[Rfam]
RNA: Bacterial large subunit ribosomal RNA, nucleotides 2567 to 2812
Organism: Mesonia phycicola
RNA sequence: AGAAAUUUGAGUGGAUCUGACUCUAGUACGAGAGGACCGAGUUGGACAAACCUCUGGUGUACCAGUUGUUCCGCCAGGAGCAUUGCUGGGUAGCUACGUUUGGAAGGGAUAAGCGCUGAAAGCAUAUAAGCGCGAAACCCACCACAAGAUGAGAUUUCUUUUAAGGGUCGUGAGAGACGAUCACGUUGAUAGGCUAUAGGUGUAAAGGCAGUAAUGUCAUAGCCAAGUAGUACUAAUAACCCGUAU
Numbered sequence: 001a002g003a004a005a006u007u008u009g010a011g012u013g014g015a016u017c018u019g020a021c022u023c024u025a026g027u028a029c030g031a032g033a034g035g036a037c038c039g040a041g042u043u044g045g046a047c048a049a050a051c052c053u054c055u056g057g058u059g060u061a062c063c064a065g066u067u068g069u070u071c072c073g074c075c076a077g078g079a080g081c082a083u084u085g086c087u088g089g090g091u092a093g094c095u096a097c098g099u100u101u102g103g104a105a106g107g108g109a110u111a112a113g114c115g116c117u118g119a120a121a122g123c124a125u126a127u128a129a130g131c132g133c134g135a136a137a138c139c140c141a142c143c144a145c146a147a148g149a150u151g152a153g154a155u156u157u158c159u160u161u162u163a164a165g166g167g168u169c170g171u172g173a174g175a176g177a178c179g180a181u182c183a184c185g186u187u188g189a190u191a192g193g194c195u196a197u198a199g200g201u202g203u204a205a206a207g208g209c210a211g212u213a214a215u216g217u218c219a220u221a222g223c224c225a226a227g228u229a230g231u232a233c234u235a236a237u238a239a240c241c242c243g244u245a246u
Stems, first nucleotide, its partner, number of pairs: 001159008011145004017045007047102005055096003062089005067082006106140003113133005165242004169185005190235003193231005199224002203219001207218004